A member of the RNA family "let-7 microRNA precursor family", 85 nucleotides long. The literature on the family includes a 2001 paper in Nat Rev Genet by Rougvie, "Control of developmental timing in animals". Rfam's curators put it in the seed alignment. About the family: This family represents the microRNAs (miRNA) let-7 and mir-98. let-7 was identified from a study of developmental timing in C. elegans, and was later shown to be part of a much larger class of non-coding RNAs termed miRNAs.
RNA sequence: CUAGGAAGAGGUAGUAGGUUGCAUAGUUUUAGGGCAGGGAUUUUGCCCACAAGGAGGUAACUAUACGACCUGCUGCCUUUCUUAG
Numbered sequence: 001c002u003a004g005g006a007a008g009a010g011g012u013a014g015u016a017g018g019u020u021g022c023a024u025a026g027u028u029u030u031a032g033g034g035c036a037g038g039g040a041u042u043u044u045g046c047c048c049a050c051a052a053g054g055a056g057g058u059a060a061c062u063a064u065a066c067g068a069c070c071u072g073c074u075g076c077c078u079u080u081c082u083u084a085g
Base pairs, nucleotide, nucleotide: 001085002084003083004082005081006080008079009078010077011076012075013074014073015072016071017070018069019068020067021066023064024063025062026061027060032048033047034046035045